[Rfam]
RNA sequence: AUAUUGAAAAGUGAAAACACAGUUCGGUUGGUAGUCCGGACGCGGUAAAUUACUGUAAGUAACCUUCCUUUUCAGGGUCGCCUGCCUUUUCAAAUUAUAUU
Dot-bracket structure: ...((((((((..........((((((........))))))((((((...))))))..........(((.....)))........))))))))........
Numbered sequence: 001a002u003a004u005u006g007a008a009a010a011g012u013g014a015a016a017a018c019a020c021a022g023u024u025c026g027g028u029u030g031g032u033a034g035u036c037c038g039g040a041c042g043c044g045g046u047a048a049a050u051u052a053c054u055g056u057a058a059g060u061a062a063c064c065u066u067c068c069u070u071u072u073c074a075g076g077g078u079c080g081c082c083u084g085c086c087u088u089u090u091c092a093a094a095u096u097a098u099a100u101u
Stems, first nucleotide, its partner, number of pairs: 004093008022041006042056006067077003
Rfam assigns this 101-nucleotide RNA sequence from Lactobacillus acetotolerans to the family "azaaromatic riboswitch aptamer (yjdF RNA)". The match comes from Rfam's covariance-model search (82 bits). The source organism's lineage runs through Bacteria, Bacillati, Bacillota, Lactobacillales and Lactobacillus. The base pairs follow the family's consensus structure, which is taken from published work.